[Rfam]
RNA sequence: UUGGCCGUCUUACCAGACAUGGUUAGAUCUAAUUAUCCCUGUCUAAUACUGUCUGGUAAUGCCGUCCAU
Numbered sequence: 001u002u003g004g005c006c007g008u009c010u011u012a013c014c015a016g017a018c019a020u021g022g023u024u025a026g027a028u029c030u031a032a033u034u035a036u037c038c039c040u041g042u043c044u045a046a047u048a049c050u051g052u053c054u055g056g057u058a059a060u061g062c063c064g065u066c067c068a069u
Stems, first nucleotide, its partner, number of pairs: 002068003006064002009061001010059010022047006